Record summary: Shown here is a 121-nucleotide RNA sequence from Erwinia sp. Leaf53, a member of the family "Phenylalanine leader peptide". The family's RNA type in Rfam is cis-regulatory leader. It scores 58 bits against the family's covariance model. Rfam links the family to the GO term cellular amino acid metabolic process.

RNA sequence: CAUGAUAAAUGCGAACUUCCGUUUCUUUUUUUACUUUAGCACCUGAAUGUCGGGGGCUUUUGCGCAGAGAAAAGAAACGAAAAUUCGCGCUGAAAGCCUCCCAUGUGGAGGCUUUUUUCGU
Number, nucleotide and partner (000 for none) at each position: 001c000002a000003u000004g000005a000006u000007a000008a000009a000010u000011g088012c087013g086014a085015a000016c000017u082018u081019c000020c079021g078022u077023u076024u075025c074026u073027u072028u071029u070030u000031u068032u067033a000034c000035u000036u000037u000038a000039g000040c000041a050042c049043c000044u000045g000046a000047a000048u000049g042050u041051c000052g000053g063054g000055g061056g060057c000058u000059u000060u056061u055062g000063c053064g000065c000066a000067g032068a031069g000070a029071a028072a027073a026074g025075a024076a023077a022078c021079g020080a000081a018082a017083a000084u000085u014086c013087g012088c011089g000090c000091u000092g000093a115094a114095a113096g112097c111098c110099u109100c108101c107102c000103a000104u000105g000106u000107g101108g100109a099110g098111g097112c096113u095114u094115u093116u000117u000118u000119c000120g000121u000